[Rfam]
RNA sequence: AGGUGAGGUAGAGGCGCGGUGGCUAACAGUCUUUGGAGGAGCUUGAGGAAGUAGAGAUCCCAGAGAGAAGGAGACAUCGCCGAAAUGUGAACCGGCCUCACCGGUGCAUGUUGGGUCUGCAGCAAACAGCUGCAGGACUGUCCUUUUGACCAGCCCAGGUCAACAGGUUGCGCUAUCUUAUCA
Numbered sequence: 001a002g003g004u005g006a007g008g009u010a011g012a013g014g015c016g017c018g019g020u021g022g023c024u025a026a027c028a029g030u031c032u033u034u035g036g037a038g039g040a041g042c043u044u045g046a047g048g049a050a051g052u053a054g055a056g057a058u059c060c061c062a063g064a065g066a067g068a069a070g071g072a073g074a075c076a077u078c079g080c081c082g083a084a085a086u087g088u089g090a091a092c093c094g095g096c097c098u099c100a101c102c103g104g105u106g107c108a109u110g111u112u113g114g115g116u117c118u119g120c121a122g123c124a125a126a127c128a129g130c131u132g133c134a135g136g137a138c139u140g141u142c143c144u145u146u147u148g149a150c151c152a153g154c155c156c157a158g159g160u161c162a163a164c165a166g167g168u169u170g171c172g173c174u175a176u177c178u179u180a181u182c183a
Stems, first nucleotide, its partner, number of pairs: 006178006016080006023073002031065006038058001084112006091105005113139002116136008142167003146163005
Overview: This 183-nucleotide RNA sequence from Proteiniclasticum sediminis belongs to the Rfam family "Lysine riboswitch aptamer". Lineage of the source: Bacteria > Bacillati > Clostridia > Clostridiaceae > Proteiniclasticum.